Shown here is a 92-nucleotide sequence from Streptomyces sp. 3213.3, a member of the family "Streptomyces RNA 3202". Lineage of the source: Bacteria > Actinomycetota > Actinomycetes > Kitasatosporales > Streptomyces. Identified by deep sequencing of transcriptome at the end of exponential growth phase. Appears smaller on northern blot than sequencing transcript. This indicates processing step. The pairing is the family consensus, mapped onto this sequence.
[Rfam]
RNA sequence: CCAAGUCCCGACGCACAUCCCCCCCGGCGCCGGGACUCUCCCGAGCCGGGCUUCGGCACCUGUCCCCCCAGGCGCCGGGGCCCGGCUCCUUU
Numbered sequence: 001c002c003a004a005g006u007c008c009c010g011a012c013g014c015a016c017a018u019c020c021c022c023c024c025c026g027g028c029g030c031c032g033g034g035a036c037u038c039u040c041c042c043g044a045g046c047c048g049g050g051c052u053u054c055g056g057c058a059c060c061u062g063u064c065c066c067c068c069c070a071g072g073c074g075c076c077g078g079g080g081c082c083c084g085g086c087u088c089c090u091u092u
Base pairs, nucleotide, nucleotide: 005036006035007034008033009032010031012029013028014027043088044087045086046085047084048083049082050081051080052079054077055076056075057074059072060071061070062069